Shown here is a 115-nucleotide RNA sequence from Hirundo rustica, a member of the family "U5 spliceosomal RNA".
The family's RNA type in Rfam is spliceosomal small nuclear RNA.
[Rfam]
RNA sequence: UAACUCAGGUUUCUCUUCAGAUCGUAUAUAUUUUUCACCUUCUACUAAAGAUUUCCGUGGAGAGAACCAAGUACGAAUCAUAACAAAAUUUCGUGGCUUAAGAAAGAGCAAAUGC
Numbered sequence: 001u002a003a004c005u006c007a008g009g010u011u012u013c014u015c016u017u018c019a020g021a022u023c024g025u026a027u028a029u030a031u032u033u034u035u036c037a038c039c040u041u042c043u044a045c046u047a048a049a050g051a052u053u054u055c056c057g058u059g060g061a062g063a064g065a066a067c068c069a070a071g072u073a074c075g076a077a078u079c080a081u082a083a084c085a086a087a088a089u090u091u092c093g094u095g096g097c098u099u100a101a102g103a104a105a106g107a108g109c110a111a112a113u114g115c
Stems, first nucleotide, its partner, number of pairs: 003078001005076002009068001011066009028054001030052006095115001097114001099112001102109001